[Rfam]
RNA sequence: CUCUUAUCCCGAGCUGGUGGAGGGGCAGGCCCUAUGAAACCCGGCAACCUGCGUAUAUUUUAUACGUGUUGGUGCCAACCUGAUGCAAGGGCAAAAAUUCCCUUGAACGAUAAGAG
Numbered sequence: 001c002u003c004u005u006a007u008c009c010c011g012a013g014c015u016g017g018u019g020g021a022g023g024g025g026c027a028g029g030c031c032c033u034a035u036g037a038a039a040c041c042c043g044g045c046a047a048c049c050u051g052c053g054u055a056u057a058u059u060u061u062a063u064a065c066g067u068g069u070u071g072g073u074g075c076c077a078a079c080c081u082g083a084u085g086c087a088a089g090g091g092c093a094a095a096a097a098u099u100c101c102c103u104u105g106a107a108c109g110a111u112a113a114g115a116g
Stems, first nucleotide, its partner, number of pairs: 001116008013042001016041003022032003026085002029081001043076004048072002050068006086105006
Annotation
A member of the RNA family "SAM riboswitch aptamer (S box leader)" from Solibacillus silvestris, 116 nucleotides long. Lineage of the source: Bacteria > Bacillota > Caryophanales > Caryophanaceae > Solibacillus silvestris. Rfam links the family to the GO term regulation of gene expression.